[Rfam]
RNA sequence: GCUAGGCAAGAUGUUGGCAUAGCUGAUCAAUUUCAAAUAUGUACUCAGCUUCGCCACAUUCUGCCAAGCG
Numbered sequence: 001g002c003u004a005g006g007c008a009a010g011a012u013g014u015u016g017g018c019a020u021a022g023c024u025g026a027u028c029a030a031u032u033u034c035a036a037a038u039a040u041g042u043a044c045u046c047a048g049c050u051u052c053g054c055c056a057c058a059u060u061c062u063g064c065c066a067a068g069c070g
Stems, first nucleotide, its partner, number of pairs: 005065003011059004016055003022049005
RNA: mir-72 microRNA precursor family
Organism: Caenorhabditis bovis